A member of the RNA family "mir-7563 microRNA precursor family" from Ameiurus melas, 76 nucleotides long. Gene Ontology terms of the family: RISC complex and miRNA-mediated post-transcriptional gene silencing. It scores 83 bits against the family's covariance model. Taxonomically the source falls in Ameiurus (Eukaryota, Vertebrata, Gnathostomata, Actinopterygii). Pairs were carried over by alignment from the consensus structure, which was predicted with RNAalifold.

RNA sequence: ACCGCGUACUUACCUGCUAUAUAGUAGGUGAGAUACACGUAUUUCAGCUACUACAUAGAAGGUAAGUACAUGGUUU
Number, nucleotide and partner (000 for none) at each position: 001a074002c073003c072004g071005c000006g069007u068008a067009c066010u065011u064012a063013c062014c061015u060016g000017c058018u057019a056020u055021a000022u053023a052024g051025u050026a049027g048028g000029u046030g045031a044032g000033a042034u041035a040036c000037a000038c000039g000040u035041a034042u033043u000044u031045c030046a029047g000048c027049u026050a025051c024052u023053a022054c000055a020056u019057a018058g017059a000060a015061g014062g013063u012064a011065a010066g009067u008068a007069c006070a000071u004072g003073g002074u001075u000076u000